[Rfam]
RNA: small nucleolar RNA snoR127
Organism: Daucus carota
RNA sequence: CUGGGGUGAUGAUUCUUAGCCAAAUCAGACAUUGAUGUGCUCCAGUGGAUUGUCUUUCCUAGCCAUAUAUAUAUAUAUAUACUUAUAUAUAUGGUCUGGGGCAGCUUGUAAAGCCUGCGAGUAGACACCUUUUGUAGAAGCGCAUCUAUGUGAUGAUAAAACAGAGAAAUGGUAUCAGACUGACCAGA
Numbered sequence: 001c002u003g004g005g006g007u008g009a010u011g012a013u014u015c016u017u018a019g020c021c022a023a024a025u026c027a028g029a030c031a032u033u034g035a036u037g038u039g040c041u042c043c044a045g046u047g048g049a050u051u052g053u054c055u056u057u058c059c060u061a062g063c064c065a066u067a068u069a070u071a072u073a074u075a076u077a078u079a080u081a082c083u084u085a086u087a088u089a090u091a092u093g094g095u096c097u098g099g100g101g102c103a104g105c106u107u108g109u110a111a112a113g114c115c116u117g118c119g120a121g122u123a124g125a126c127a128c129c130u131u132u133u134g135u136a137g138a139a140g141c142g143c144a145u146c147u148a149u150g151u152g153a154u155g156a157u158a159a160a161a162c163a164g165a166g167a168a169a170u171g172g173u174a175u176c177a178g179a180c181u182g183a184c185c186a187g188a
Stems, first nucleotide, its partner, number of pairs: 001187004